Rfam assigns this 118-nucleotide sequence from Thermogemmatispora tikiterensis to the family "TPP riboswitch aptamer (THI element)". Vitamin B(1) in its active form thiamin pyrophosphate (TPP) is an essential coenzyme that is synthesised by coupling of pyrimidine and thiazole moieties in bacteria.

RNA sequence: UGUACUCGCUAGGGGAGCUUGGUGCAGCCAGGCUGAGAACACCACCGGAGUGUGUGGGGGACCCUGAACCAACCUGAUCUGGGUAAUGCCAGCGAAGGGAACGCGGGUGAUUGAGAAA
Numbered sequence: 001u002g003u004a005c006u007c008g009c010u011a012g013g014g015g016a017g018c019u020u021g022g023u024g025c026a027g028c029c030a031g032g033c034u035g036a037g038a039a040c041a042c043c044a045c046c047g048g049a050g051u052g053u054g055u056g057g058g059g060g061a062c063c064c065u066g067a068a069c070c071a072a073c074c075u076g077a078u079c080u081g082g083g084u085a086a087u088g089c090c091a092g093c094g095a096a097g098g099g100a101a102c103g104c105g106g107g108u109g110a111u112u113g114a115g116a117a118a
Stems, first nucleotide, its partner, number of pairs: 006106004011065004017033005040059001042057003073098003079092004